The record is an 86-nucleotide RNA from Falsibacillus albus, which matches "c-di-GMP-I riboswitch aptamer" in Rfam. Rfam links the family to the GO term cyclic-di-GMP binding. Lineage of the source: Bacteria > Bacillota > Bacilli > Bacillaceae > Falsibacillus.
[Rfam]
Nucleotides: 086
Stems, first nucleotide, its partner, number of pairs: 012037002017032006041079003045076003048071003055065004
Number, partner (000 for none) and nucleotide at each position: 001000a002000a003000c004000u005000g006000a007000u008000a009000a010000u011000g012037g013036c014000a015000a016000a017032c018031u019030a020029g021028u022027u023000g024000a025000a026000a027022g028021a029020c030019u031018a032017g033000g034000a035000c036013g037012c038000a039000a040000a041079g042078c043077u044000g045076c046075g047074g048071g049070u050069c051000u052000a053000a054000c055065g056064u057063u058062c059000a060000u061000c062058g063057a064056a065055c066000u067000a068000u069050g070049a071048c072000a073000g074047c075046c076045g077043a078042g079041c080000c081000g082000c083000c084000a085000a086000c